[Rfam]
RNA sequence: CCGGGGUCCACUCUAGCAGCACAUCAUGUUUUGCAGAUUUGUACAGAAUCACUCCAAAUCAUAAUGUGCUGCCACUGUGAGCCCUGG
Numbered sequence: 001c002c003g004g005g006g007u008c009c010a011c012u013c014u015a016g017c018a019g020c021a022c023a024u025c026a027u028g029u030u031u032u033g034c035a036g037a038u039u040u041g042u043a044c045a046g047a048a049u050c051a052c053u054c055c056a057a058a059u060c061a062u063a064a065u066g067u068g069c070u071g072c073c074a075c076u077g078u079g080a081g082c083c084c085u086g087g
Base pairs, nucleotide, nucleotide: 001087002086003085004084005083006082014074016072017071018070019069020068021067022066023065024064026062027061028060030058031057032056033055035053036052
This 87-nucleotide RNA from Takifugu flavidus belongs to the Rfam family "mir-15 microRNA precursor family". Rfam 15.1 lists 2,045 matches to the family in 649 species. The family's consensus secondary structure was predicted with RNAalifold. The source organism's lineage runs through Eukaryota, Osteoglossocephalai, Euteleosteomorpha, Percomorphaceae and Takifugu. A reference for the family is Calin et al. (2002), "Frequent deletions and down-regulation of micro- RNA genes miR15 and miR16 at 13q14 in chronic lymphocytic leukemia", Proc Natl Acad Sci U S A. The match comes from Rfam's covariance-model search (61 bits).